[Rfam]
This 274-nucleotide RNA sequence from Papio anubis belongs to the Rfam family "Mason-Pfizer monkey virus packaging signal".
The family has 9 seed sequences and 2,921 matches in Rfam 15.1.
RNA sequence: UGGCGCUUGAACAGGGACCUGAAGCGAGGGACUCUGUGAGAAGAGGGCGUAAGGGCCGAUUAGAGCCGUUAACAGGACAAAAGUGGCUUUUGAUCACGCGGGAACCUGCCCGCGUCAGAAUCGAAGGUAAAGUGCGUGGCGUCGAAAAUAAGGACAAGAAUUAGUCAGCAUCAAAUUUAUGUAGGACAAUUAAAGAGGCUUUAAAGUGCGAGGUAGGAUAAAGGUAAUGAUUUGUUUUAAAUUUUGCGGGAUUUUGUAAAAGAUACUUGCCCUU
Numbered sequence: 001u002g003g004c005g006c007u008u009g010a011a012c013a014g015g016g017a018c019c020u021g022a023a024g025c026g027a028g029g030g031a032c033u034c035u036g037u038g039a040g041a042a043g044a045g046g047g048c049g050u051a052a053g054g055g056c057c058g059a060u061u062a063g064a065g066c067c068g069u070u071a072a073c074a075g076g077a078c079a080a081a082a083g084u085g086g087c088u089u090u091u092g093a094u095c096a097c098g099c100g101g102g103a104a105c106c107u108g109c110c111c112g113c114g115u116c117a118g119a120a121u122c123g124a125a126g127g128u129a130a131a132g133u134g135c136g137u138g139g140c141g142u143c144g145a146a147a148a149u150a151a152g153g154a155c156a157a158g159a160a161u162u163a164g165u166c167a168g169c170a171u172c173a174a175a176u177u178u179a180u181g182u183a184g185g186a187c188a189a190u191u192a193a194a195g196a197g198g199c200u201u202u203a204a205a206g207u208g209c210g211a212g213g214u215a216g217g218a219u220a221a222a223g224g225u226a227a228u229g230a231u232u233u234g235u236u237u238u239a240a241a242u243u244u245u246g247c248g249g250g251a252u253u254u255u256g257u258a259a260a261a262g263a264u265a266c267u268u269g270c271c272c273u274u
Base pairs, nucleotide, nucleotide: 006029007028008027034047035046037044086128087127088125089124094120095118097114098113099112100111101110137157139155142153143152162203163201164199165198166197207248208247209246210245211244212243213242214241215233216232217231219229220228259274260273262271264269

By type it is a cis-regulatory element.